[Rfam]
RNA sequence: UCUCGAUAAAGGCAAAGCUAGCGAAAGUUAGUGACGCAAAGCUACAGGGGCUAAGGUGUAUUACAAGUACACUACGCCAGCCAGUUACCGAA
Numbered sequence: 001u002c003u004c005g006a007u008a009a010a011g012g013c014a015a016a017g018c019u020a021g022c023g024a025a026a027g028u029u030a031g032u033g034a035c036g037c038a039a040a041g042c043u044a045c046a047g048g049g050g051c052u053a054a055g056g057u058g059u060a061u062u063a064c065a066a067g068u069a070c071a072c073u074a075c076g077c078c079a080g081c082c083a084g085u086u087a088c089c090g091a092a
Stems, first nucleotide, its partner, number of pairs: 012037002017032006040086004047082002049078003056072007

Rfam assigns this 92-nucleotide RNA from Anaerobacillus arseniciselenatis to the family "c-di-GMP-I riboswitch aptamer". A search with the family's covariance model found it, with a score of 80 bits. Rfam links the family to the GO term cyclic-di-GMP binding.